Annotation: Shown here is a 96-nucleotide sequence from Actinoplanes aureus, a member of the family "Glycine riboswitch aptamer". The pairing is the family consensus, mapped onto this sequence.
RNA sequence: UCAACCGUCGCGGGAGAGUCCUCGCCUCUUCAGCGAGGCGCCGAAGGAGCAACUUCUCCCUCAGAAUCUCUCAGGCCCCGGUACCGCAACGGUCAG
Numbered sequence: 001u002c003a004a005c006c007g008u009c010g011c012g013g014g015a016g017a018g019u020c021c022u023c024g025c026c027u028c029u030u031c032a033g034c035g036a037g038g039c040g041c042c043g044a045a046g047g048a049g050c051a052a053c054u055u056c057u058c059c060c061u062c063a064g065a066a067u068c069u070c071u072c073a074g075g076c077c078c079c080g081g082u083a084c085c086g087c088a089a090c091g092g093u094c095a096g
Base pairs, nucleotide, nucleotide: 006091007090008089010087011086012085013084020038021037022036023035040076041075042074043072044071047070048069049068053064054063

The organism belongs to Actinoplanes, within Bacteria. A search with the family's covariance model found it, with a score of 66 bits.